RNA: Small nucleolar RNA snoR109
Organism: Aquilegia coerulea
RNA sequence: UGGCUGUAGCUAAAUUGAUCAGAUGUUUACUGGCCGAUUGUUGUGAGUUUCAAUCUCUGUCGACAGAUCUGCUUACCGAACGUCUUACACUA
Numbered sequence: 001u002g003g004c005u006g007u008a009g010c011u012a013a014a015u016u017g018a019u020c021a022g023a024u025g026u027u028u029a030c031u032g033g034c035c036g037a038u039u040g041u042u043g044u045g046a047g048u049u050u051c052a053a054u055c056u057c058u059g060u061c062g063a064c065a066g067a068u069c070u071g072c073u074u075a076c077c078g079a080a081c082g083u084c085u086u087a088c089a090c091u092a
Stems, first nucleotide, its partner, number of pairs: 021085007032073003036069004040064004